The record is a 468-nucleotide RNA from Rhexocercosporidium sp. MPI-PUGE-AT-0058, which matches "RNase MRP" in Rfam. Taxonomically the source falls in Rhexocercosporidium (Eukaryota, Fungi, Pezizomycotina, leotiomyceta). By type it is a ribozyme. Rfam's curators write: RNase MRP is an enzymatically active ribonucleoprotein with two distinct roles in eukaryotes. In mitochondria it plays a direct role in the initiation of mitochondrial DNA replication. In the nucleus it is involved in precursor rRNA processing, where it cleaves the internal transcribed spacer 1 between 18S and 5.8S rRNAs.
RNA sequence: UUCUCGCUCAAAGAAUCGCAUUCGAAGCACACACACAGAGAGACCUCAACGGGUCUCUCGGCUAGCAAUAGCUAUUGUUGCUUUGGGAGAAAGUCCCCGGACACCCUUCAUUUAUGAAGGAUUGCGGAAACGCGCCGCCAUAGAAGCAACACAGCGGCUUCUCUUCUACCAAUUCUCUUUCACCUCCUACACCCUGUUACCGCUCGUACUGCACUCUCGCCGAUCUCGGGGUCUCGUUUCUUCCCCGGGGAGACCACAUGGAUGAAGAUACGAGUCCGAGCUCCUCGGACGAUGUUUCUCGGCCCUGACGGAUGUGGGUUUGUGGGAGGUAUCCGGACUGUUCUAGGGGUGUUGGGGAUGCUCUGGUCGUCGAGGUUUUUUCGUCGAGAUCGAUAGUUAUGCGAUUGCCUCUCUUAUUGCUUAGGUGGUGAGGGCGGUAACUCGAUGGGGCUUAUUCUUGAUACGAGA
Numbered sequence: 001u002u003c004u005c006g007c008u009c010a011a012a013g014a015a016u017c018g019c020a021u022u023c024g025a026a027g028c029a030c031a032c033a034c035a036c037a038g039a040g041a042g043a044c045c046u047c048a049a050c051g052g053g054u055c056u057c058u059c060g061g062c063u064a065g066c067a068a069u070a071g072c073u074a075u076u077g078u079u080g081c082u083u084u085g086g087g088a089g090a091a092a093g094u095c096c097c098c099g100g101a102c103a104c105c106c107u108u109c110a111u112u113u114a115u116g117a118a119g120g121a122u123u124g125c126g127g128a129a130a131c132g133c134g135c136c137g138c139c140a141u142a143g144a145a146g147c148a149a150c151a152c153a154g155c156g157g158c159u160u161c162u163c164u165u166c167u168a169c170c171a172a173u174u175c176u177c178u179u180u181c182a183c184c185u186c187c188u189a190c191a192c193c194c195u196g197u198u199a200c201c202g203c204u205c206g207u208a209c210u211g212c213a214c215u216c217u218c219g220c221c222g223a224u225c226u227c228g229g230g231g232u233c234u235c236g237u238u239u240c241u242u243c244c245c246c247g248g249g250g251a252g253a254c255c256a257c258a259u260g261g262a263u264g265a266a267g268a269u270a271c272g273a274g275u276c277c278g279a280g281c282u283c284c285u286c287g288g289a290c291g292a293u294g295u296u297u298c299u300c301g302g303c304c305c306u307g308a309c310g311g312a313u314g315u316g317g318g319u320u321u322g323u324g325g326g327a328g329g330u331a332u333c334c335g336g337a338c339u340g341u342u343c344u345a346g347g348g349g350u351g352u353u354g355g356g357g358a359u360g361c362u363c364u365g366g367u368c369g370u371c372g373a374g375g376u377u378u379u380u381u382c383g384u385c386g387a388g389a390u391c392g393a394u395a396g397u398u399a400u401g402c403g404a405u406u407g408c409c410u411c412u413c414u415u416a417u418u419g420c421u422u423a424g425g426u427g428g429u430g431a432g433g434g435c436g437g438u439a440a441c442u443c444g445a446u447g448g449g450g451c452u453u454a455u456u457c458u459u460g461a462u463a464c465g466a467g468a
Stems, first nucleotide, its partner, number of pairs: 002468005008461004014406006022087001023085006038059009091453003095450004123134004274290006292378001294376001298374006408437002411434009